[Rfam]
RNA: Small nucleolar RNA Z188
Organism: Eragrostis curvula
Nucleotides: 097
Stems, first nucleotide, its partner, number of pairs: 002096006
Number, partner (000 for none) and nucleotide at each position: 001000g002096c003095g004094u005093g006092c007091c008000a009000a010000u011000g012000a013000u014000g015000a016000u017000u018000u019000a020000g021000g022000c023000u024000c025000a026000u027000g028000g029000u030000g031000a032000a033000u034000u035000c036000u037000g038000g039000a040000u041000g042000a043000a044000u045000g046000u047000u048000c049000u050000g051000g052000u053000g054000c055000a056000c057000u058000g059000c060000c061000a062000g063000g064000c065000a066000u067000g068000u069000u070000g071000a072000u073000u074000u075000c076000c077000c078000g079000u080000c081000g082000u083000u084000c085000g086000u087000c088000u089000g090000a091007g092006g093005c094004g095003c096002g097000c